RNA sequence: AUAAUAUUAAAUAAUAACCUUCGUAUAAGCUUAAUAAUAUGGUUUAAGCGUAUCUACAAUAUCACCGUAAAUGAUAUUUGCUAUGAAGAUUUCAAAAUCCACG
Numbered sequence: 001a002u003a004a005u006a007u008u009a010a011a012u013a014a015u016a017a018c019c020u021u022c023g024u025a026u027a028a029g030c031u032u033a034a035u036a037a038u039a040u041g042g043u044u045u046a047a048g049c050g051u052a053u054c055u056a057c058a059a060u061a062u063c064a065c066c067g068u069a070a071a072u073g074a075u076a077u078u079u080g081c082u083a084u085g086a087a088g089a090u091u092u093c094a095a096a097a098u099c100c101a102c103g
Stems, first nucleotide, its partner, number of pairs: 019088007029049006058079001059077006

A member of the RNA family "Purine riboswitch aptamer" from Candidatus Arthromitus sp. SFB-turkey, 103 nucleotides long. The base pairs follow the family's consensus structure, which is taken from published work. NCBI's taxonomy places the organism under Bacteria, Clostridia, Eubacteriales, Clostridiaceae, Candidatus Neoarthromitus. Riboswitches are metabolite binding domains within certain messenger RNAs that serve as precision sensors for their corresponding targets.